[Rfam]
RNA: Y RNA
Organism: Colobus angolensis
RNA sequence: GACUUGGUCCAAAGGUAGUGAAUUCUCUCACUUAAUUGUUCAGUUAUAGAUCCAACUCCUUGUUGUACUCUUUCUCCUCUUCUCACUACUGCACUUGAUUAGUCUUUA
Numbered sequence: 001g002a003c004u005u006g007g008u009c010c011a012a013a014g015g016u017a018g019u020g021a022a023u024u025c026u027c028u029c030a031c032u033u034a035a036u037u038g039u040u041c042a043g044u045u046a047u048a049g050a051u052c053c054a055a056c057u058c059c060u061u062g063u064u065g066u067a068c069u070c071u072u073u074c075u076c077c078u079c080u081u082c083u084c085a086c087u088a089c090u091g092c093a094c095u096u097g098a099u100u101a102g103u104c105u106u107u108a
Base pairs, nucleotide, nucleotide: 001104002103003102005101006100007099008098009097011096012095015092016091017087018086019085020084021083038070042066